[Rfam]
RNA: Betaproteobacteria toxic small RNA
Organism: Melaminivora alkalimesophila
RNA sequence: UGUCUCCUCCAUCUCCUCAAAAGAUGGAUUCAGCCCCGGGCCUGGUGUCCGGGGCUUUUUUU
Dot-bracket structure: .......((((((.........))))))....((((((((.......)))))))).......